[Rfam]
RNA sequence: CGUGUCUGAUAUGAUGAAGAAUAUGUUGGUAGGGACAUCUGAGACAUCUGAGGAAACGCCAACUUUACUGACAAGACAUG
Numbered sequence: 001c002g003u004g005u006c007u008g009a010u011a012u013g014a015u016g017a018a019g020a021a022u023a024u025g026u027u028g029g030u031a032g033g034g035a036c037a038u039c040u041g042a043g044a045c046a047u048c049u050g051a052g053g054a055a056a057c058g059c060c061a062a063c064u065u066u067a068c069u070g071a072c073a074a075g076a077c078a079u080g
Base pairs, nucleotide, nucleotide: 001080002079003078004077005076
Small nucleolar RNA SNORD74: an 80-nucleotide sequence from Hucho hucho.
Its Rfam clan is "SNORD74 clan".
Rfam classes the family as a C/D-box small nucleolar RNA.
The source organism's lineage runs through Eukaryota, Eumetazoa, Osteoglossocephalai, Euteleosteomorpha and Hucho.